[Rfam]
Record summary: The record is a 101-nucleotide RNA from Saimiri boliviensis, which matches "Y RNA" in Rfam.
RNA sequence: GGCUGGUCGAGUGCAGUGGUAUUUACGACUAAUUGAUCACAACAAGAUACAGAUUUCUUUGUUCUUUCUCCACUCCGGCUGCUUCAAUUGACUAGCCUAAA
Numbered sequence: 001g002g003c004u005g006g007u008c009g010a011g012u013g014c015a016g017u018g019g020u021a022u023u024u025a026c027g028a029c030u031a032a033u034u035g036a037u038c039a040c041a042a043c044a045a046g047a048u049a050c051a052g053a054u055u056u057c058u059u060u061g062u063u064c065u066u067u068c069u070c071c072a073c074u075c076c077g078g079c080u081g082c083u084u085c086a087a088u089u090g091a092c093u094a095g096c097c098u099a100a101a
Stems, first nucleotide, its partner, number of pairs: 001097010013085001015080003019076001027063003031059002
Notes
A reference for the family is Teunissen et al. (2000), "Conserved features of Y RNAs: a comparison of experimentally derived secondary structures", Nucleic Acids Res. The match comes from Rfam's covariance-model search (57 bits). Y RNAs are components of the Ro ribonucleoprotein particle (Ro RNP), in association with Ro60 and La proteins. The Y RNAs and Ro60 and La proteins are well conserved, but the function of the Ro RNP is not known. In humans the RNA component can be one of four small RNAs -- hY1, hY3, hY4 and hY5. By type it is a non-coding RNA gene. Lineage of the source: Eukaryota > Dipnotetrapodomorpha > Tetrapoda > Boreoeutheria > Saimiri boliviensis.